[Rfam]
RNA sequence: GGGGAGCAUCUAUAUGCCGAGAUGUUGCCUGAUACAAUCUUCCUAUAGAAACAAACUGUUGUUUCCUGCUUGUAGUGCUUGAGCAAGUCCUGCAAGUCUCAAAUAGGACAGGUGACACAU
Numbered sequence: 001g002g003g004g005a006g007c008a009u010c011u012a013u014a015u016g017c018c019g020a021g022a023u024g025u026u027g028c029c030u031g032a033u034a035c036a037a038u039c040u041u042c043c044u045a046u047a048g049a050a051a052c053a054a055a056c057u058g059u060u061g062u063u064u065c066c067u068g069c070u071u072g073u074a075g076u077g078c079u080u081g082a083g084c085a086a087g088u089c090c091u092g093c094a095a096g097u098c099u100c101a102a103a104u105a106g107g108a109c110a111g112g113u114g115a116c117a118c119a120u
Stems, first nucleotide, its partner, number of pairs: 001030003005026007055113003068097008077088003
Small nucleolar RNA snoR104: a 120-nucleotide sequence from Abrus precatorius. The base pairs follow the family's consensus structure, which was predicted with WAR. The match comes from Rfam's covariance-model search (93 bits). For this family Rfam cites "Experimental RNomics: identification of 140 candidates for small non-messenger RNAs in the plant Arabidopsis thaliana" (Marker et al., Curr Biol, 2002). The organism belongs to Abrus, within Eukaryota.